[Rfam]
RNA sequence: UAAAAGGGUCGGUUGGUUAAAUAUACCACGCACGGCUUCGCUGUGUGCUGUAUGGACUAUCAAGACAUAUGGCCGACACAAUUUCUUUCUCUCCAAUAGGGUUGGCAUAACUGCCGACCCUCCG
Numbered sequence: 001u002a003a004a005a006g007g008g009u010c011g012g013u014u015g016g017u018u019a020a021a022u023a024u025a026c027c028a029c030g031c032a033c034g035g036c037u038u039c040g041c042u043g044u045g046u047g048c049u050g051u052a053u054g055g056a057c058u059a060u061c062a063a064g065a066c067a068u069a070u071g072g073c074c075g076a077c078a079c080a081a082u083u084u085c086u087u088u089c090u091c092u093c094c095a096a097u098a099g100g101g102u103u104g105g106c107a108u109a110a111c112u113g114c115c116g117a118c119c120c121u122c123c124g
Base pairs, nucleotide, nucleotide: 008077009076010075011074012073014028015027016026017025029047030046031045032044033043034042035041048072049071050070051069052068053067054066098121099120100119101118102117103116104115105114
RNA: U11 spliceosomal RNA
Organism: Marchantia polymorpha